Rfam assigns this 205-nucleotide RNA from Actinomadura harenae to the family "c-di-AMP riboswitch aptamer (ydaO/yuaA leader)". Rfam's curators write: This family represents a conserved RNA structure found upstream of the ydaO and yuaA genes in Bacillus subtilis and related genes in other bacteria. Gene Ontology terms of the family: regulation of gene expression and cyclic-di-AMP binding. Taxonomically the source falls in Actinomadura (Bacteria, Actinomycetota, Streptosporangiales, Thermomonosporaceae).
Nucleotides: 205
Base pairs, nucleotide, nucleotide: 011189012188013187014186018037019036020035021034022033023032024031025030038184039183040182041181042180043179048100049099101169102168103167109145110144111143112142113141114140148163149162150161151160
Number, partner (000 for none) and nucleotide at each position: 001000g002000a003000g004000c005000a006000g007000g008000c009000a010000a011189c012188g013187c014186c015000g016000a017000a018037u019036c020035c021034g022033c023032g024031c025030g026000a027000c028000g029000g030025c031024g032023c033022g034021c035020g036019g037018a038184a039183c040182c041181g042180g043179g044000g045000a046000c047000c048100c049099a050000u051000c052000u053000g054000c055000g056000c057000c058000a059000a060000c061000g062000c063000g064000u065000c066000c067000a068000c069000a070000g071000c072000c073000a074000u075000u076000u077000c078000c079000g080000g081000a082000c083000a084000c085000g086000u087000u088000c089000c090000c091000g092000c093000g094000g095000c096000g097000c098000a099049u100048g101169g102168g103167g104000u105000g106000a107000a108000u109145c110144g111143a112142c113141g114140g115000u116000c117000c118000c119000u120000c121000c122000c123000c124000c125000a126000g127000a128000a129000c130000g131000a132000c133000c134000u135000g136000g137000g138000a139000c140114c141113c142112g143111u144110c145109g146000u147000a148163g149162g150161g151160c152000g153000g154000c155000u156000c157000c158000a159000c160151g161150c162149c163148c164000g165000a166000a167103c168102c169101c170000g171000g172000c173000a174000g175000c176000u177000a178000a179043c180042c181041c182040g183039g184038u185000a186014g187013g188012c189011g190000u191000c192000u193000g194000g195000a196000a197000a198000a199000a200000g201000g202000a203000g204000a205000a